RNA sequence: CGGCAGUGAUCGCCGAGUCCCCCGAGCGGGGGAGCCGGGGACCCACCCUCCCGCCCUUCUGCGCGGGAGCGGUCCUCCUCCGAGGCACCUGGGGUGAAUCGGGCCGUGCGCCCGUAGGAGACCUUCCUGCUCCGAACCCGACAGCUAACCCGGUAGGCGAGAAGGAAGGAAAG
Numbered sequence: 001c002g003g004c005a006g007u008g009a010u011c012g013c014c015g016a017g018u019c020c021c022c023c024g025a026g027c028g029g030g031g032g033a034g035c036c037g038g039g040g041a042c043c044c045a046c047c048c049u050c051c052c053g054c055c056c057u058u059c060u061g062c063g064c065g066g067g068a069g070c071g072g073u074c075c076u077c078c079u080c081c082g083a084g085g086c087a088c089c090u091g092g093g094g095u096g097a098a099u100c101g102g103g104c105c106g107u108g109c110g111c112c113c114g115u116a117g118g119a120g121a122c123c124u125u126c127c128u129g130c131u132c133c134g135a136a137c138c139c140g141a142c143a144g145c146u147a148a149c150c151c152g153g154u155a156g157g158c159g160a161g162a163a164g165g166a167a168g169g170a171a172a173g
Stems, first nucleotide, its partner, number of pairs: 011159004018033005034154006044091002092139003100114004117133004
About this RNA
The family of this 173-nucleotide sequence from Streptomyces radiopugnans is "c-di-AMP riboswitch aptamer (ydaO/yuaA leader)".